RNA sequence: GUACCGGUGACGGUGCUUCGGGAGGAAGCCGCCUUGCUGAGGCAAGGUACCGCGAAGGUACGGGAUGACGUACAGGAAUCGAGUAUAAGGCGCGCAUACUGGGACGAGCCUGCCACACAAGGUAAAGUCCUCUAUCCAUUACAGGGUAUGUCCGUAAACUCGGCAUCUACGUACUGAAAGGCAUGUGU
Numbered sequence: 001g002u003a004c005c006g007g008u009g010a011c012g013g014u015g016c017u018u019c020g021g022g023a024g025g026a027a028g029c030c031g032c033c034u035u036g037c038u039g040a041g042g043c044a045a046g047g048u049a050c051c052g053c054g055a056a057g058g059u060a061c062g063g064g065a066u067g068a069c070g071u072a073c074a075g076g077a078a079u080c081g082a083g084u085a086u087a088a089g090g091c092g093c094g095c096a097u098a099c100u101g102g103g104a105c106g107a108g109c110c111u112g113c114c115a116c117a118c119a120a121g122g123u124a125a126a127g128u129c130c131u132c133u134a135u136c137c138a139u140u141a142c143a144g145g146g147u148a149u150g151u152c153c154g155u156a157a158a159c160u161c162g163g164c165a166u167c168u169a170c171g172u173a174c175u176g177a178a179a180g181g182c183a184u185g186u187g188u
Stems, first nucleotide, its partner, number of pairs: 001016006045188001047186003053180001057175006063168005079163006090155003094151007102130004108123004
RNA: Group II catalytic intron D1-D4-3
Organism: Desulfobacter latus